A member of the RNA family "Vertebrate telomerase RNA" from Ameiurus melas, 348 nucleotides long. The organism belongs to Ameiurus, within Eukaryota.
[Rfam]
Nucleotides: 348
Base pairs, nucleotide, nucleotide: 005163006162007161008160009159010158011157012156013155014154015153042097043096044095045094046093056089058087059086060085061084062083063082064081073148075146076145077144078142079141080140166273167272168271169270170269171268172267181248182247183246185244188240189239190238197216198215199214200213202212203211204210205209219234220233221232222231285340286339287338291334292333293332294331295330296329300326301325302324303323304322305320306319307318308317
Number, partner (000 for none) and nucleotide at each position: 001000a002000u003000g004000u005163u006162c007161a008160g009159a010158g011157a012156g013155c014154a015153c016000a017000u018000u019000u020000u021000c022000u023000a024000a025000c026000c027000c028000u029000a030000a031000g032000u033000a034000c035000g036000u037000u038000c039000u040000u041000a042097c043096u044095u045094c046093c047000u048000g049000u050000c051000c052000g053000g054000u055000g056089u057000a058087a059086u060085u061084a062083c063082u064081g065000u066000u067000u068000u069000g070000c071000c072000u073148c074000c075146a076145g077144c078142u079141u080140u081064c082063a083062g084061u085060a086059a087058u088000c089056a090000a091000c092000a093046g094045g095044a096043a097042g098000u099000u100000u101000u102000u103000c104000a105000u106000g107000g108000c109000g110000u111000u112000c113000c114000g115000c116000u117000g118000u119000u120000c121000u122000c123000u124000a125000a126000c127000a128000g129000u130000a131000a132000a133000a134000a135000a136000a137000a138000a139000a140080a141079a142078a143000a144077g145076c146075u147000a148073g149000g150000a151000g152000a153015g154014u155013g156012c157011u158010c159009u160008c161007u162006g163005a164000a165000g166273c167272u168271c169270g170269g171268u172267g173000u174000c175000u176000c177000c178000g179000g180000u181248g182247u183246g184000a185244g186000c187000g188240u189239g190238c191000c192000u193000u194000g195000u196000u197216g198215u199214g200213g201000a202212c203211a204210g205209c206000c207000a208000g209205g210204c211203u212202g213200c214199c215198g216197c217000u218000a219234a220233g221232a222231g223000u224000u225000c226000c227000c228000c229000c230000g231222c232221u233220c234219u235000g236000c237000c238190g239189c240188a241000g242000u243000g244185c245000g246183c247182g248181c249000g250000a251000g252000c253000c254000c255000g256000g257000a258000g259000g260000a261000u262000c263000a264000g265000c266000a267172c268171a269170u270169u271168g272167a273166g274000c275000a276000g277000a278000u279000c280000a281000a282000g283000c284000u285340g286339a287338g288000c289000a290000u291334g292333g293332c294331u295330g296329c297000a298000c299000g300326c301325u302324g303323c304322a305320c306319a307318u308317c309000c310000u311000u312000c313000c314000a315000a316000u317308g318307g319306u320305g321000c322304u323303g324302c325301a326300g327000g328000a329296g330295u331294a332293g333292c334291u335000c336000c337000u338287c339286u340285c341000a342000a343000a344000c345000a346000c347000a348000u

The literature on the family includes a 2000 paper in Cell by Chen et al., "Secondary structure of vertebrate telomerase RNA". Gene Ontology terms of the family: telomere maintenance via telomerase, telomerase activity and telomerase catalytic core complex. Rfam classes the family as a non-coding RNA gene. The match comes from Rfam's covariance-model search (74 bits). Rfam describes the family as follows. Telomerase is a ribonucleoprotein reverse transcriptase that synthesises telomeric DNA. Telomerase RNAs differ greatly in sequence and structure between vertebrates, ciliates and yeasts, but they share a 5' pseudoknot structure close to the template sequence. Vertebrate telomerase RNAs have a 3' H/ACA snoRNA-like domain.